RNA: MIR807 microRNA precursor family
Organism: Oryza barthii
RNA sequence: UAUCACACUAUCAAUGAAUGGAUUCAACUACGAGAUGACGUGGUUGUUCCACCUAUGGCAUCCUAUUAAUUUCGUGCGAUGGCUGGUAAUAGGAUGCCACGUCUUUGUUCUAAGUGGAACAGCCAUGUCAUAUCACGGGUGAAUCUAUUCAUUGAUAGCGUGGUU
Numbered sequence: 001u002a003u004c005a006c007a008c009u010a011u012c013a014a015u016g017a018a019u020g021g022a023u024u025c026a027a028c029u030a031c032g033a034g035a036u037g038a039c040g041u042g043g044u045u046g047u048u049c050c051a052c053c054u055a056u057g058g059c060a061u062c063c064u065a066u067u068a069a070u071u072u073c074g075u076g077c078g079a080u081g082g083c084u085g086g087u088a089a090u091a092g093g094a095u096g097c098c099a100c101g102u103c104u105u106u107g108u109u110c111u112a113a114g115u116g117g118a119a120c121a122g123c124c125a126u127g128u129c130a131u132a133u134c135a136c137g138g139g140u141g142a143a144u145c146u147a148u149u150c151a152u153u154g155a156u157a158g159c160g161u162g163g164u165u
Stems, first nucleotide, its partner, number of pairs: 002164005009157007017149003021145006028138001032134002035131005041125008051115002054112002057103001058097011075086001